Annotation:
Shown here is an 82-nucleotide sequence from Ovis aries, a member of the family "Vault RNA". The match comes from Rfam's covariance-model search (40 bits). Taxonomically the source falls in Ovis (Eukaryota, Opisthokonta, Bilateria, Bovidae). Rfam classes the family as a non-coding RNA gene. The base pairs follow the family's consensus structure, which is taken from published work.

RNA sequence: GGCCGUAGCUCAGUGGUUCCUUCAACUACAAACUGAUUAAAUAAUCCUCUCCAGGAUGGUUUGAGACCUGCAGGCACUCUCC
Numbered sequence: 001g002g003c004c005g006u007a008g009c010u011c012a013g014u015g016g017u018u019c020c021u022u023c024a025a026c027u028a029c030a031a032a033c034u035g036a037u038u039a040a041a042u043a044a045u046c047c048u049c050u051c052c053a054g055g056a057u058g059g060u061u062u063g064a065g066a067c068c069u070g071c072a073g074g075c076a077c078u079c080u081c082c
Base pairs, nucleotide, nucleotide: 001082002081008075009074010073013071014070015069016068021065022064023063024062025061